[Rfam]
RNA sequence: ACGAGGUGAUGAUAGAAAUUCAUGGUCUGUCAAUCCACUGAUUAUUAAUUGAUGUUACUCAUGAAUCUCGACAGGUUCUGAUCGU
Numbered sequence: 001a002c003g004a005g006g007u008g009a010u011g012a013u014a015g016a017a018a019u020u021c022a023u024g025g026u027c028u029g030u031c032a033a034u035c036c037a038c039u040g041a042u043u044a045u046u047a048a049u050u051g052a053u054g055u056u057a058c059u060c061a062u063g064a065a066u067c068u069c070g071a072c073a074g075g076u077u078c079u080g081a082u083c084g085u
Stems, first nucleotide, its partner, number of pairs: 001085004
A member of the RNA family "Small nucleolar RNA snoR14" from Coptis chinensis, 85 nucleotides long. Lineage of the source: Eukaryota > Tracheophyta > Ranunculaceae > Coptidoideae > Coptis. The family has 7 seed sequences and 668 matches in Rfam 15.1. The match comes from Rfam's covariance-model search (89 bits).